[Rfam]
RNA: sodF sRNA
RNA sequence: CCGGCCCCCGUCCGUGAUCGUCUUCUCACCCUUCACGAGGCGGGCGGAAAAGAGGAGCGGCCCCCGCGAGGACAGGACUCGCGGGGGCCGCUC
Numbered sequence: 001c002c003g004g005c006c007c008c009c010g011u012c013c014g015u016g017a018u019c020g021u022c023u024u025c026u027c028a029c030c031c032u033u034c035a036c037g038a039g040g041c042g043g044g045c046g047g048a049a050a051a052g053a054g055g056a057g058c059g060g061c062c063c064c065c066g067c068g069a070g071g072a073c074a075g076g077a078c079u080c081g082c083g084g085g086g087g088c089c090g091c092u093c
Base pairs, nucleotide, nucleotide: 001047002046003045007044008043009042010041011040012039014036015035016034017033020030055093056092057091058090059089060088061087062086063085064084065083066082067081068080069079070078